Ribosomal protein L10 leader: a 158-nucleotide sequence from Anaerolinea thermophila. Pairs were carried over by alignment from the consensus structure, which was predicted with CMfinder. NCBI's taxonomy places the organism under Bacteria, Bacillati, Anaerolineaceae, Anaerolinea, Anaerolinea thermophila. From the family's description: This family is a putative r-protein leader autoregulatory structure found in B. subtilis and other low-GC Gram-positive bacteria. It scores 55 bits against the family's covariance model.

[Rfam]
RNA sequence: GGUGAACGAAUUACUUCACCGCUGAAAGCAGGUGCCGAAAGGCUUAAUAUCCCGCCGAGGUGAAGACGUUUAGAUCGCAGGAUCGCCUCCUUUUUAUGAGGAGUGAAAAGCGUCUUUGCCUCAAGGGAAUGUGGCAAAGACGCUUUGAGUUUUAAAAU
Dot-bracket structure: ...........................((.((.(((....))).......)).))......................................................((((((((((..............))))))))))...............